[Rfam]
RNA: Plastid-psbA-4 3UTR RNA
RNA sequence: AGAAUAAAGGAGAAAUAACGCCCUCUUGAUAGAACAAGAAAGUGUUUAUUGCUCCUUUAU
Numbered sequence: 001a002g003a004a005u006a007a008a009g010g011a012g013a014a015a016u017a018a019c020g021c022c023c024u025c026u027u028g029a030u031a032g033a034a035c036a037a038g039a040a041a042g043u044g045u046u047u048a049u050u051g052c053u054c055c056u057u058u059a060u
Stems, first nucleotide, its partner, number of pairs: 006058007014050004020043002024039005